Annotation: This 177-nucleotide RNA from Odobenus rosmarus belongs to the Rfam family "Small nucleolar RNA SNORA81".

RNA sequence: ACCUUCUUUUGCAUAAGCACUGUGCUAAAAUUGCAGAAACUAAGAUCACAUCUUGGGUUUUGUAAUGAUGCUAGGCAAAGUACAUUCAAGAGGAAAAGGAACUGCCCCAGAGUGUAAAGACUGGGGUGAGUCUCUCAAUGUCCAGUGUUCUUUGUCUUAAGGUGUGAUACACUACGC
Dot-bracket structure: ...................((.(((((..((((..((..(((((((...)))))))..)).....))))..)).))).))......................((...((.(...........(.(.((.(..........).)).).)..............).))...))......
It scores 131 bits against the family's covariance model. It is annotated as an H/ACA-box small nucleolar RNA. The organism belongs to Odobenus rosmarus, within Eukaryota. A reference for the family is Gu et al. (2005), "A novel experimental approach for systematic identification of box H/ACA snoRNAs from eukaryotes", Nucleic Acids Res.